A member of the RNA family "Mammalian CPEB3 ribozyme" from Parnassius apollo, 77 nucleotides long.
Nucleotides: 077
Stems, first nucleotide, its partner, number of pairs: 013046002016043003021077007028040003050067007
Number, partner (000 for none) and nucleotide at each position: 001000c002000a003000u004000u005000u006000u007000c008000a009000u010000u011000g012000g013046g014045g015000a016043g017042u018041c019000g020000u021077u022076g023075u024074a025073g026072a027071a028040g029039c030038g031000u032000g033000c034000u035000c036000g037000u038030c039029g040028c041018g042017a043016c044000c045014c046013c047000u048000g049000c050067c051066a052065g053064c054063c055062c056061u057000u058000u059000c060000c061056a062055g063054g064053g065052c066051u067050g068000c069000a070000a071027u072026u073025c074024u075023a076022c077021a
Record summary: The base pairs follow the family's consensus structure, which is taken from published work. Rfam's curators write: The mammalian CPEB3 ribozyme is a self cleaving RNA located in the second intron of the CPEB3 gene which belongs to a family of genes regulating messenger RNA polyadenylation. This ribozyme is highly conserved and found only in mammals. The CPEB3 ribozyme is structurally and biochemically related to the human hepatitis delta virus (HDV) ribozyme and the HDV ribozyme is proposed to have arisen from the human transcriptome. There is currently only one other known self cleaving ribozyme in mammals, the CoTC motif.